[Rfam]
RNA sequence: GUCGGAUACGGGGAUACGUACCCGCAAGGGGUGGCGGGAAAACUGGUGGCGGUUCUCUGCUUCUUCUUCGGGAUUCUGAUAAUGGCAAUGCUGAUGCCGAUCUUCGUGGACAAG
Numbered sequence: 001g002u003c004g005g006a007u008a009c010g011g012g013g014a015u016a017c018g019u020a021c022c023c024g025c026a027a028g029g030g031g032u033g034g035c036g037g038g039a040a041a042a043c044u045g046g047u048g049g050c051g052g053u054u055c056u057c058u059g060c061u062u063c064u065u066c067u068u069c070g071g072g073a074u075u076c077u078g079a080u081a082a083u084g085g086c087a088a089u090g091c092u093g094a095u096g097c098c099g100a101u102c103u104u105c106g107u108g109g110a111c112a113a114g
Stems, first nucleotide, its partner, number of pairs: 002113001004111001007108005013102003018097003037077004049063001051061001
RNA: Potassium channel RNA editing signal
Organism: Branchiostoma belcheri